[Rfam]
RNA: TPP riboswitch aptamer (THI element)
Organism: Allocoleopsis franciscana
RNA sequence: AUCCAUAGCUAGGGGUGCCUGAGCAACCAGGCUGAGAUUACACCCUUUGCACCUGAGUCCGGUUAAUACCGGCGGAGGGAAGCUCUUAAUAGAGGGA
Numbered sequence: 001a002u003c004c005a006u007a008g009c010u011a012g013g014g015g016u017g018c019c020u021g022a023g024c025a026a027c028c029a030g031g032c033u034g035a036g037a038u039u040a041c042a043c044c045c046u047u048u049g050c051a052c053c054u055g056a057g058u059c060c061g062g063u064u065a066a067u068a069c070c071g072g073c074g075g076a077g078g079g080a081a082g083c084u085c086u087u088a089a090u091a092g093a094g095g096g097a
Stems, first nucleotide, its partner, number of pairs: 007084004011046004016040001017032005052078003059072004
Dot-bracket structure: ......((((((((.((((((......))))).......)..)))).....(((....((((......))))...)))..)))).............